The family of this 412-nucleotide sequence from Proteus myxofaciens is "cspA thermoregulator". The family has 15 seed sequences and 2,094 matches in Rfam 15.1.
Nucleotides: 412
Base pairs, nucleotide, nucleotide: 003013004012005011024210025209026207027206028205036201037200039198040197041196043191044190045189046188049185050184051183052181053180054179055178057174058173062144063143064142065141066140067139068133069132072128073127074126076089102112103111104110146161147160214306215305217303218302226234227233237295239293240292242290244289245288246287247286248284249283252277253276254275256273313326314325316324317323328352329351330350331349332346334344336342355372356371357370360367381409382408383407384406385405386404387403388402389401390400391399392398
Number, partner (000 for none) and nucleotide at each position: 001000u002000u003013a004012u005011g006000a007000u008000u009000g010000a011005c012004a013003u014000u015000c016000u017000a018000a019000g020000u021000u022000a023000a024210u025209g026207a027206g028205u029000u030000u031000u032000a033000a034000a035000c036201a037200g038000c039198a040197u041196c042000g043191c044190u045189u046188u047000u048000u049185g050184a051183c052181c053180g054179u055178u056000u057174u058173c059000u060000u061000c062144u063143g064142u065141g066140u067139g068133c069132c070000c071000c072128a073127u074126a075000a076089g077000u078000u079000a080000u081000a082000g083000g084000u085000a086000g087000u088000u089076c090000a091000g092000g093000c094000c095000a096000g097000u098000a099000g100000a101000u102112g103111c104110c105000g106000a107000g108000a109000a110104g111103g112102c113000a114000a115000c116000g117000u118000u119000u120000u121000u122000u123000u124000g125000a126074u127073a128072u129000a130000u131000a132069g133068g134000a135000a136000a137000g138000u139067c140066a141065c142064a143063u144062g145000u146161c147160u148000g149000a150000c151000a152000a153000a154000a155000u156000g157000a158000a159000a160147g161146g162000u163000c164000a165000a166000g167000u168000u169000a170000a171000g172000u173058g174057g175000u176000u177000c178055a179054a180053c181052g182000a183051g184050u185049c186000u187000a188046a189045a190044g191043g192000c193000u194000u195000u196041g197040g198039u199000u200037u201036u202000a203000u204000u205028a206027c207026u208000c209025c210024a211000g212000c213000a214306g215305a216000c217303g218302g219000a220000a221000g222000c223000a224000a225000a226234g227233a228000c229000g230000u231000a232000u233227u234226c235000g236000u237295u238000c239293a240292c241000u242290u243000u244289u245288c246287u247286g248284c249283c250000a251000u252277u253276c254275a255000a256273g257000g258000u259000a260000a261000c262000g263000g264000u265000u266000u267000c268000a269000a270000a271000a272000c273256u274000c275254u276253g277252g278000c279000u280000g281000a282000a283249g284248g285000u286247c287246a288245g289244a290242a291000c292240g293239u294000a295237g296000a297000a298000u299000u300000c301000a302218c303217u304000a305215u306214u307000g308000a309000a310000a311000a312000c313326g314325g315000u316324g317323c318000a319000a320000a321000a322000g323317g324316u325314c326313c327000a328352g329351c330350a331349g332346c333000a334344g335000c336342u337000a338000a339000c340000g341000u342336a343000a344334c345000a346332g347000c348000u349331c350330u351329g352328u353000a354000a355372u356371u357370u358000a359000a360367a361000g362000c363000c364000u365000u366000u367360u368000a369000a370357a371356a372355a373000a374000u375000u376000u377000a378000u379000u380000c381409a382408a383407g384406c385405c386404u387403g388402u389401c390400a391399c392398c393000u394000u395000a396000u397000a398392g399391g400390u401389g402388g403387c404386a405385g406384g407383c408382u409381u410000u411000u412000u
Lineage of the source: Bacteria > Pseudomonadota > Gammaproteobacteria > Enterobacterales > Proteus myxofaciens.